[Rfam]
RNA sequence: UCCUUAUUCAGAGUUGGGGGAGGAACCUGGUCCUUAGAUCCCACAGCAACCUCUAGUGAUAGAAAGGUGCUCAUUCCAGCAGGCGAGCGUUUUUGGCCUGGCAGAUAGGGA
Numbered sequence: 001u002c003c004u005u006a007u008u009c010a011g012a013g014u015u016g017g018g019g020g021a022g023g024a025a026c027c028u029g030g031u032c033c034u035u036a037g038a039u040c041c042c043a044c045a046g047c048a049a050c051c052u053c054u055a056g057u058g059a060u061a062g063a064a065a066g067g068u069g070c071u072c073a074u075u076c077c078a079g080c081a082g083g084c085g086a087g088c089g090u091u092u093u094u095g096g097c098c099u100g101g102c103a104g105a106u107a108g109g110g111a
Stems, first nucleotide, its partner, number of pairs: 001111008013044001015043004022033003027079004045071004050067002052063004075103001080100005
Rfam assigns this 111-nucleotide sequence from Listeria booriae to the family "SAM riboswitch aptamer (S box leader)". The base pairs follow the family's consensus structure, which is taken from published work.